[Rfam]
RNA sequence: CUUUGGCUUCUUUACAGUGCUGCCUUGUUGCAUAUGGAUCAAGCAGCAUUGUACAGGGCUAUGAAGACA
Dot-bracket structure: .......((((.((((((((((.((((............)))))))))))))).))))...........
Shown here is a 69-nucleotide sequence from Ophiophagus hannah, a member of the family "mir-103/107 microRNA precursor family". For this family Rfam cites "microRNAs: tiny regulators with great potential" (Ambros, Cell, 2001). NCBI's taxonomy places the organism under Eukaryota, Teleostomi, Euteleostomi, Episquamata, Ophiophagus. It is one of the family's seed sequences. From the family's description: This family consists of the mammalian microRNA (miRNA) precursors mir-103 and mir107. The family has 93 seed sequences and 1,982 matches in Rfam 15.1. Pairs were carried over by alignment from the consensus structure, which was predicted with RNAalifold.